The record is a 90-nucleotide RNA sequence from Branchiostoma floridae, which matches "mir-2060 microRNA precursor family" in Rfam. Gene Ontology terms of the family: RISC complex and miRNA-mediated post-transcriptional gene silencing. The organism belongs to Branchiostoma, within Eukaryota.
[Rfam]
RNA sequence: GACUAUUUGUUUGUGGAUGGUGUUCAGCACCACGGACAGGUCUGUUUGUGUGUGGAUAGUGUUCAGCACCAGGGACAGGCCUGUUUGUGU
Numbered sequence: 001g002a003c004u005a006u007u008u009g010u011u012u013g014u015g016g017a018u019g020g021u022g023u024u025c026a027g028c029a030c031c032a033c034g035g036a037c038a039g040g041u042c043u044g045u046u047u048g049u050g051u052g053u054g055g056a057u058a059g060u061g062u063u064c065a066g067c068a069c070c071a072g073g074g075a076c077a078g079g080c081c082u083g084u085u086u087g088u089g090u
Stems, first nucleotide, its partner, number of pairs: 006079005018071007026063005032057001034051001036049003